[Rfam]
RNA sequence: ACCCGAACAGGCAAACCCGCUGCGAGGCGGGGACGCAAAGCUAGGGGCCUCCCCGAACGGAGGUAGCCCAGCCGCCGAAG
Numbered sequence: 001a002c003c004c005g006a007a008c009a010g011g012c013a014a015a016c017c018c019g020c021u022g023c024g025a026g027g028c029g030g031g032g033a034c035g036c037a038a039a040g041c042u043a044g045g046g047g048c049c050u051c052c053c054c055g056a057a058c059g060g061a062g063g064u065a066g067c068c069c070a071g072c073c074g075c076c077g078a079a080g
Stems, first nucleotide, its partner, number of pairs: 003077001011036002016031006034066001040072003044069003047064003

Rfam assigns this 80-nucleotide sequence from Actinoplanes aureus to the family "c-di-GMP-I-GGC riboswitch aptamer".
The base pairs follow the family's consensus structure, which is taken from published work.